Annotation
The family of this 222-nucleotide RNA sequence from Allosphingorhabdus lutea is "permuted transfer-messenger RNA". It scores 138 bits against the family's covariance model. The family's consensus secondary structure is taken from published work. The organism belongs to Allosphingorhabdus, within Bacteria. On this family, see Williams and Bartel, RNA 1996: "Phylogenetic analysis of tmRNA secondary structure".
RNA sequence: GGCGAUAAAUGAUGAUGUGUAAUAGAUGCAGCGGACCCGGGGGCAGUACCCGGCGGCUCCACCAAAAUGGUCGAUUAUGUUAAAUGAUUGGCAAUAUUGACGGGGCCGAACCAGGAUCGACGUGUGUUCAAAGGCAUUAUUUUCACCCGGGCUGAGUAACCCGCUAUAGGCUCAAAACUUAUAAGUGCAAACGAUAACGAAGCACUUGCUCUUGCAGCGUAA
Numbered sequence: 001g002g003c004g005a006u007a008a009a010u011g012a013u014g015a016u017g018u019g020u021a022a023u024a025g026a027u028g029c030a031g032c033g034g035a036c037c038c039g040g041g042g043g044c045a046g047u048a049c050c051c052g053g054c055g056g057c058u059c060c061a062c063c064a065a066a067a068u069g070g071u072c073g074a075u076u077a078u079g080u081u082a083a084a085u086g087a088u089u090g091g092c093a094a095u096a097u098u099g100a101c102g103g104g105g106c107c108g109a110a111c112c113a114g115g116a117u118c119g120a121c122g123u124g125u126g127u128u129c130a131a132a133g134g135c136a137u138u139a140u141u142u143u144c145a146c147c148c149g150g151g152c153u154g155a156g157u158a159a160c161c162c163g164c165u166a167u168a169g170g171c172u173c174a175a176a177a178c179u180u181a182u183a184a185g186u187g188c189a190a191a192c193g194a195u196a197a198c199g200a201a202g203c204a205c206u207u208g209c210u211c212u213u214g215c216a217g218c219g220u221a222a
Base pairs, nucleotide, nucleotide: 001147002146004144005143015137016136017135018134027126028125029124031123032122033121037053038052039051040050041049054108055107056106057105058104059103060102148163149162150161151160